Shown here is a 76-nucleotide RNA from Mastacembelus armatus, a member of the family "Small nucleolar RNA SNORD47". It is annotated as a C/D-box small nucleolar RNA. The match comes from Rfam's covariance-model search (68 bits). The literature on the family includes a 2002 paper in Mol Cell Biol by Galardi et al., "Purified box C/D snoRNPs are able to reproduce site-specific 2'-O-methylation of target RNA in vitro". The base pairs follow the family's consensus structure, which was predicted with ILM.

RNA sequence: GACCUGUGAUGAAAAGAUUCUGCCAAAUGAUUUGUGUUGAUUAUAACCCAUACCGUUCCAUUUUAUUCUGAUGGUU
Number, nucleotide and partner (000 for none) at each position: 001g076002a075003c074004c073005u000006g000007u000008g000009a000010u000011g000012a000013a000014a000015a000016g000017a000018u000019u000020c000021u000022g000023c000024c000025a000026a000027a000028u000029g000030a000031u000032u000033u000034g000035u000036g000037u000038u000039g000040a000041u000042u000043a000044u000045a000046a000047c000048c000049c000050a000051u000052a000053c000054c000055g000056u000057u000058c000059c000060a000061u000062u000063u000064u000065a000066u000067u000068c000069u000070g000071a000072u000073g004074g003075u002076u001